Shown here is a 48-nucleotide RNA from Caulobacter sp., a member of the family "Guanidine-II riboswitch aptamer (mini-ykkC)". Pairs were carried over by alignment from the consensus structure, which is taken from published work. Gene Ontology term of the family: regulation of gene expression. A reference for the family is Weinberg et al. (2007), "Identification of 22 candidate structured RNAs in bacteria using the CMfinder comparative genomics pipeline", Nucleic Acids Res. It scores 50 bits against the family's covariance model.
[Rfam]
RNA sequence: GCGCGGGGACGACCCCGCGCCUUUUUCGCGUUUCCGGGGACGACCCCG
Numbered sequence: 001g002c003g004c005g006g007g008g009a010c011g012a013c014c015c016c017g018c019g020c021c022u023u024u025u026u027c028g029c030g031u032u033u034c035c036g037g038g039g040a041c042g043a044c045c046c047c048g
Base pairs, nucleotide, nucleotide: 001020002019003018004017005016006015007014008013035048036047037046038045039044
Dot-bracket structure: ((((((((....))))))))..............(((((....)))))